[Rfam]
RNA sequence: CAAGUUACUCACAUGAAAGGUAUAGCCAACCAUCAUGACCCCGAGUCAUGCCUCGAUAGCCAGCAAUGGAAUGGGGAAGCGUUGACAGGGGAAAACACAGGAGUCCUAUUGAGCUCCGAAAUCACCACAAUUUUCAGGCUGACCUCGUAGGAUGAGAGGGAAAGCAACAUCACCCAUACCGACAUGGCAAGGUGUGGUAGGCUGCGGCGUUGGUUUAUA
Numbered sequence: 001c002a003a004g005u006u007a008c009u010c011a012c013a014u015g016a017a018a019g020g021u022a023u024a025g026c027c028a029a030c031c032a033u034c035a036u037g038a039c040c041c042c043g044a045g046u047c048a049u050g051c052c053u054c055g056a057u058a059g060c061c062a063g064c065a066a067u068g069g070a071a072u073g074g075g076g077a078a079g080c081g082u083u084g085a086c087a088g089g090g091g092a093a094a095a096c097a098c099a100g101g102a103g104u105c106c107u108a109u110u111g112a113g114c115u116c117c118g119a120a121a122u123c124a125c126c127a128c129a130a131u132u133u134u135c136a137g138g139c140u141g142a143c144c145u146c147g148u149a150g151g152a153u154g155a156g157a158g159g160g161a162a163a164g165c166a167a168c169a170u171c172a173c174c175c176a177u178a179c180c181g182a183c184a185u186g187g188c189a190a191g192g193u194g195u196g197g198u199a200g201g202c203u204g205c206g207g208c209g210u211u212g213g214u215u216u217a218u219a
Stems, first nucleotide, its partner, number of pairs: 012037005019031003023190001025188002039091004045086004049081002051076005057070001060069003110213001111211001113210002116207003135204003138165003143159004170201002174197007
Shown here is a 219-nucleotide RNA from Pelodictyon phaeoclathratiforme, a member of the family "Group II catalytic intron D1-D4-6". The source organism's lineage runs through Bacteria, Chlorobiia, Chlorobiales, Chlorobiaceae and Pelodictyon phaeoclathratiforme. Rfam links the family to the GO term Group II intron splicing. For this family Rfam cites "Group II introns: structure and catalytic versatility of large natural ribozymes" (Lehmann and Schmidt, Crit Rev Biochem Mol Biol, 2003). Group II introns are found in rRNA, tRNA and mRNA of organelles in fungi, plants and protists, and also in mRNA in bacteria.